[Rfam]
RNA sequence: CUCUUAUCAAGAGUGGCAGAGGGACUGGCCCGAUGACGCCCGGCAACCGUUCAAUUAGAAUUGGUGCUAAAUCCUGCAAAGCUAUACAGCUUUGAAAGAUAAGAG
Numbered sequence: 001c002u003c004u005u006a007u008c009a010a011g012a013g014u015g016g017c018a019g020a021g022g023g024a025c026u027g028g029c030c031c032g033a034u035g036a037c038g039c040c041c042g043g044c045a046a047c048c049g050u051u052c053a054a055u056u057a058g059a060a061u062u063g064g065u066g067c068u069a070a071a072u073c074c075u076g077c078a079a080a081g082c083u084a085u086a087c088a089g090c091u092u093u094g095a096a097a098g099a100u101a102a103g104a105g
Stems, first nucleotide, its partner, number of pairs: 001105008013041001015040003021031003025076001027074002042068004047064002049061004072097001077094006
RNA: SAM riboswitch aptamer (S box leader)
Organism: Bacillus sp. AFS040349